Background:
Rfam assigns this 76-nucleotide RNA sequence from Roseibium hamelinense to the family "Makes More Granules Regulator RNA (mmgR)". The source organism's lineage runs through Bacteria, Alphaproteobacteria, Hyphomicrobiales, Stappiaceae and Roseibium.

RNA sequence: GAGUGCCGCCCUCCUUGGGCGUUUCCUCCCUAGACUCGGGCCGCCUCGCAAGAGUGCGGCCUUUUUUUUGGAUAUG
Numbered sequence: 001g002a003g004u005g006c007c008g009c010c011c012u013c014c015u016u017g018g019g020c021g022u023u024u025c026c027u028c029c030c031u032a033g034a035c036u037c038g039g040g041c042c043g044c045c046u047c048g049c050a051a052g053a054g055u056g057c058g059g060c061c062u063u064u065u066u067u068u069u070g071g072a073u074a075u076g
Stems, first nucleotide, its partner, number of pairs: 008020004039061006045054003
The match comes from Rfam's covariance-model search (62 bits). Pairs were carried over by alignment from the consensus structure.